[Rfam]
RNA sequence: CGAGGCGAGUGCCGCGAGGCCUCUGCCCGAUGCCGACCCUGACGCACUUCCCCAGCGCCAGGUCCGGUGAAUCGGACAGAGACCUCGCGGCAUCCGCCCCCACCU
Numbered sequence: 001c002g003a004g005g006c007g008a009g010u011g012c013c014g015c016g017a018g019g020c021c022u023c024u025g026c027c028c029g030a031u032g033c034c035g036a037c038c039c040u041g042a043c044g045c046a047c048u049u050c051c052c053c054a055g056c057g058c059c060a061g062g063u064c065c066g067g068u069g070a071a072u073c074g075g076a077c078a079g080a081g082a083c084c085u086c087g088c089g090g091c092a093u094c095c096g097c098c099c100c101c102a103c104c105u
Stems, first nucleotide, its partner, number of pairs: 010092007018084002021081005027075005032068004038062004043057003
The family of this 105-nucleotide sequence from Rhodococcus sp. RD6.2 is "mraW RNA".
Taxonomically the source falls in Rhodococcus (Bacteria, Bacillati, Actinomycetes, Mycobacteriales).
A search with the family's covariance model found it, with a score of 68 bits.
Rfam classes the family as a cis-regulatory element.
Pairs were carried over by alignment from the consensus structure, which is taken from published work.